[Rfam]
RNA sequence: GGGUCGGCAGUAGCUCGGCGGUUACUUCUCUGCAUUUGCAAACUUUGGGCGCACCUUCGGGUGUUCGUUCCCCGCGGGCGCUAUCCGACCCUUUU
Numbered sequence: 001g002g003g004u005c006g007g008c009a010g011u012a013g014c015u016c017g018g019c020g021g022u023u024a025c026u027u028c029u030c031u032g033c034a035u036u037u038g039c040a041a042a043c044u045u046u047g048g049g050c051g052c053a054c055c056u057u058c059g060g061g062u063g064u065u066c067g068u069u070c071c072c073c074g075c076g077g078g079c080g081c082u083a084u085c086c087g088a089c090c091c092u093u094u095u
Base pairs, nucleotide, nucleotide: 002090003089004088005087006086007085013079014078015077016076018075019074020073021072028067

A member of the RNA family "Vault RNA" from Geotrypetes seraphini, 95 nucleotides long.
For this family Rfam cites "Evolution of Vault RNAs" (Stadler et al., Mol Biol Evol, 2009).
Lineage of the source: Eukaryota > Metazoa > Chordata > Tetrapoda > Geotrypetes.
This family of RNAs are found as part of the enigmatic vault ribonucleoprotein complex. The complex consists of a major vault protein (MVP), two minor vault proteins (VPARP and TEP1), and several small untranslated RNA molecules. It has been suggested that the vault complex is involved in drug resistance.